[Rfam]
RNA sequence: UAUGUGGCUCUUGGUGGGGACGUGUUCCCCGAACAUUCCACAGGGAAAUGCACCUUGCCUUCAUGGCAGAAAAUUAAUCAGUCAAAAAUGUGUGUGGUAGGUAGAAAUAGUCGAAGCACAUAGAUUUC
Numbered sequence: 001u002a003u004g005u006g007g008c009u010c011u012u013g014g015u016g017g018g019g020a021c022g023u024g025u026u027c028c029c030c031g032a033a034c035a036u037u038c039c040a041c042a043g044g045g046a047a048a049u050g051c052a053c054c055u056u057g058c059c060u061u062c063a064u065g066g067c068a069g070a071a072a073a074u075u076a077a078u079c080a081g082u083c084a085a086a087a088a089u090g091u092g093u094g095u096g097g098u099a100g101g102u103a104g105a106a107a108u109a110g111u112c113g114a115a116g117c118a119c120a121u122a123g124a125u126u127u128c
Stems, first nucleotide, its partner, number of pairs: 003042005012035002016030005044054002055069005084127003090121006100111001102109002

Background: A member of the RNA family "RT-3 RNA", 128 nucleotides long. Rfam's curators put it in the seed alignment.